[Rfam]
RNA sequence: GGCGAUAAACGGCGUAUGGAAUAAGCGUUGCGGACCCGGGGGCGGUACCCGGCGCCUCCACCACUCAACCCGCCUUAUCAGCGGCAGAUGGGGGCGAAAUAGGCUCGACGCGCGCGGUAAAGAUCCGUCUUUUGCCCGGCAUGGUACCGCCGUCAUCGGACCAAAUCACAAGUGCCAAUGAUAACGGUCGCGAGACCGUGGCGCUCGCUGCCUAG
Numbered sequence: 001g002g003c004g005a006u007a008a009a010c011g012g013c014g015u016a017u018g019g020a021a022u023a024a025g026c027g028u029u030g031c032g033g034a035c036c037c038g039g040g041g042g043c044g045g046u047a048c049c050c051g052g053c054g055c056c057u058c059c060a061c062c063a064c065u066c067a068a069c070c071c072g073c074c075u076u077a078u079c080a081g082c083g084g085c086a087g088a089u090g091g092g093g094g095c096g097a098a099a100u101a102g103g104c105u106c107g108a109c110g111c112g113c114g115c116g117g118u119a120a121a122g123a124u125c126c127g128u129c130u131u132u133u134g135c136c137c138g139g140c141a142u143g144g145u146a147c148c149g150c151c152g153u154c155a156u157c158g159g160a161c162c163a164a165a166u167c168a169c170a171a172g173u174g175c176c177a178a179u180g181a182u183a184a185c186g187g188u189c190g191c192g193a194g195a196c197c198g199u200g201g202c203g204c205u206c207g208c209u210g211c212c213u214a215g
Stems, first nucleotide, its partner, number of pairs: 001136005014126001016124002026114003030111003036052005053096007137152004